RNA: Acido-Lenti-1 RNA
RNA sequence: CCAGGGGCUUACGCCCCUGGCUAACGGCUACCGCCGCUCCGCGGCG
Numbered sequence: 001c002c003a004g005g006g007g008c009u010u011a012c013g014c015c016c017c018u019g020g021c022u023a024a025c026g027g028c029u030a031c032c033g034c035c036g037c038u039c040c041g042c043g044g045c046g
Stems, first nucleotide, its partner, number of pairs: 001020008033045005